The family of this 139-nucleotide sequence from Drosophila yakuba is "Small nucleolar RNA psi18S-841/snoR66". Lineage of the source: Eukaryota > Pancrustacea > Panorpida > Schizophora > Sophophora. Clan: SNORA28 clan. Gene Ontology terms of the family: RNA processing and nucleolus. The sequence is in the family's curated seed alignment. Rfam describes the family as follows. psi18S-841 is a member of the H/ACA class of snoRNA. This family is responsible for guiding the modification of uridine 841 in Drosophila 18S rRNA to pseudouridine.

[Rfam]
RNA sequence: UGCAAAUGCACUCUGUGUCACAUUGAAACAAACUACAUGUGAAUACAAUUUGUUAGUUUGCUAUAAUAAAGAGAUGCGUCUUAUCCAUGCAAUUAGUGCCGAAAAAGGUUGAUUGCAAUGAAAUCGCAUUUUACACUAU
Numbered sequence: 001u002g003c004a005a006a007u008g009c010a011c012u013c014u015g016u017g018u019c020a021c022a023u024u025g026a027a028a029c030a031a032a033c034u035a036c037a038u039g040u041g042a043a044u045a046c047a048a049u050u051u052g053u054u055a056g057u058u059u060g061c062u063a064u065a066a067u068a069a070a071g072a073g074a075u076g077c078g079u080c081u082u083a084u085c086c087a088u089g090c091a092a093u094u095a096g097u098g099c100c101g102a103a104a105a106a107g108g109u110u111g112a113u114u115g116c117a118a119u120g121a122a123a124u125c126g127c128a129u130u131u132u133a134c135a136c137u138a139u
Stems, first nucleotide, its partner, number of pairs: 002061006010053002014047003018042006025036001067138002072132003076127003084121002088117007096109002